[Rfam]
RNA sequence: AUGCUGUGAUGACGUUUUCAACUGUGGUUUCUGUUCACCGACGGUUGAAUGAGGACAGAUAAUUCCUUGGCUGUGUCUGAGCAU
Number, nucleotide and partner (000 for none) at each position: 001a084002u083003g082004c081005u000006g000007u000008g000009a000010u000011g000012a000013c000014g000015u000016u000017u000018u000019c000020a000021a000022c000023u000024g000025u000026g000027g000028u000029u000030u000031c000032u000033g000034u000035u000036c000037a000038c000039c000040g000041a000042c000043g000044g000045u000046u000047g000048a000049a000050u000051g000052a000053g000054g000055a000056c000057a000058g000059a000060u000061a000062a000063u000064u000065c000066c000067u000068u000069g000070g000071c000072u000073g000074u000075g000076u000077c000078u000079g000080a000081g004082c003083a002084u001
The record is an 84-nucleotide RNA from Ornithorhynchus anatinus, which matches "Small nucleolar RNA SNORD53/SNORD92" in Rfam. The literature on the family includes a 1996 paper in Cell by Kiss-Laszlo et al., "Site-specific ribose methylation of preribosomal RNA: a novel function for small nucleolar RNAs".